[Rfam]
Rfam assigns this 174-nucleotide RNA sequence from Natranaerobius trueperi to the family "M-box riboswitch aptamer (ykoK leader)".

Nucleotides: 174
Base pairs, nucleotide, nucleotide: 007168008167009166010165011161012160013096015154016153017152020148021147022146025144026143027142028141030139031138032137039113040112041111042110043109045074046073047072048071049070054065055064056063057062081104082103083102084101087099088098089097115132116131117130118129119128
Number, partner (000 for none) and nucleotide at each position: 001000u002000g003000c004000u005000u006000a007168a008167c009166u010165c011161g012160u013096u014000a015154g016153g017152u018000g019000a020148g021147g022146c023000u024000c025144c026143u027142g028141g029000u030139u031138g032137a033000a034000a035000a036000u037000a038000g039113g040112c041111u042110g043109c044000u045074g046073c047072c048071c049070a050000a051000a052000a053000a054065c055064g056063u057062c058000g059000a060000g061000a062057g063056a064055c065054g066000c067000c068000a069000a070049u071048g072047g073046g074045u075000a076000u077000a078000a079000c080000a081104g082103a083102c084101a085000a086000u087099c088098c089097c090000g091000g092000c093000u094000u095000a096013a097089g098088g099087g100000a101084u102083g103082u104081c105000u106000a107000a108000c109043g110042c111041a112040g113039c114000u115132g116131a117130u118129c119128c120000u121000g122000a123000a124000u125000u126000u127000u128119g129118g130117a131116u132115c133000u134000a135000c136000g137032u138031c139030a140000u141028c142027c143026a144025g145000u146022g147021c148020c149000a150000a151000a152017g153016c154015u155000u156000g157000g158000u159000u160012a161011c162000g163000a164000g165010g166009a167008g168007u169000g170000u171000g172000u173000a174000u

It scores 139 bits against the family's covariance model. The literature on the family includes a 2004 paper in Proc Natl Acad Sci U S A by Barrick et al., "New RNA motifs suggest an expanded scope for riboswitches in bacterial genetic control". Rfam 15.1 lists 1,095 matches to the family in 932 species.